[Rfam]
The record is a 427-nucleotide part of an RNA from Rhizoctonia solani, which matches "Eukaryotic large subunit ribosomal RNA" in Rfam. It scores 3148 bits against the family's covariance model. Taxonomically the source falls in Rhizoctonia (Eukaryota, Fungi, Basidiomycota, Cantharellales).

RNA sequence: GAAGACCCUGUUGAGCUUGACUCUAGUUUGACAUUGUGAAAAGACAUAGAGGGUGUAGAAUAAGUGGGAGCUUCGGCGCCGGUGAAAUACCACUACCUUUAUCGUCUUUUUACUUAUUCAAUGAGGCGGAGCUGGGAAUAACAUCCCACCUUUUGGCUUCAAGGUCCUUUACGGGCUGAUCCGGGUUGAAGACAUUGUCAGGUGGGGAGUUUGGCUGGGGCGGCACAUCUGUUAAAAGAUAACGCAGGUGUCCUAAGGGGGACUCAUUGAGAACAGAAAUCUCAAGUAGAACAAAAGGGUAAAAGUCCCCUUGAUUUUGAUUUUCAGUGUGAAUACAAACCAUGAAAGUGUGGCCUAUCGAUCCUUUAGUCCCUCGGAAUUUGAGGCUAGAGGUGCCAGAAAAGUUACCACAGGGAUUAACUAUAAA
Numbered sequence: 001g002a003a004g005a006c007c008c009u010g011u012u013g014a015g016c017u018u019g020a021c022u023c024u025a026g027u028u029u030g031a032c033a034u035u036g037u038g039a040a041a042a043g044a045c046a047u048a049g050a051g052g053g054u055g056u057a058g059a060a061u062a063a064g065u066g067g068g069a070g071c072u073u074c075g076g077c078g079c080c081g082g083u084g085a086a087a088u089a090c091c092a093c094u095a096c097c098u099u100u101a102u103c104g105u106c107u108u109u110u111u112a113c114u115u116a117u118u119c120a121a122u123g124a125g126g127c128g129g130a131g132c133u134g135g136g137a138a139u140a141a142c143a144u145c146c147c148a149c150c151u152u153u154u155g156g157c158u159u160c161a162a163g164g165u166c167c168u169u170u171a172c173g174g175g176c177u178g179a180u181c182c183g184g185g186u187u188g189a190a191g192a193c194a195u196u197g198u199c200a201g202g203u204g205g206g207g208a209g210u211u212u213g214g215c216u217g218g219g220g221c222g223g224c225a226c227a228u229c230u231g232u233u234a235a236a237a238g239a240u241a242a243c244g245c246a247g248g249u250g251u252c253c254u255a256a257g258g259g260g261g262a263c264u265c266a267u268u269g270a271g272a273a274c275a276g277a278a279a280u281c282u283c284a285a286g287u288a289g290a291a292c293a294a295a296a297g298g299g300u301a302a303a304a305g306u307c308c309c310c311u312u313g314a315u316u317u318u319g320a321u322u323u324u325c326a327g328u329g330u331g332a333a334u335a336c337a338a339a340c341c342a343u344g345a346a347a348g349u350g351u352g353g354c355c356u357a358u359c360g361a362u363c364c365u366u367u368a369g370u371c372c373c374u375c376g377g378a379a380u381u382u383g384a385g386g387c388u389a390g391a392g393g394u395g396c397c398a399g400a401a402a403a404g405u406u407a408c409c410a411c412a413g414g415g416a417u418u419a420a421c422u423a424u425a426a427a
Base pairs, nucleotide, nucleotide: 007414008413009412010411012410013409014406015405016404017403018402020210021209022208023207027202028201029200030199031198032197033196036113037112038111039110040109041108042107043106044105045104046102047101048100049099050098051097052096063094064093065092066091067090070077071076117190118189119188120187121186127183128182129181130180135147136146138144139143163177164176165175166174167173213226214224215223216222227249228248229247230246231245232244252353253352258310259309260308261307262306263305264290265289267285268284269283270282271281272280291300292299315339316338317337320334321333322332323331341350342349343348364392365391366390367389368388369387372386373385374384375383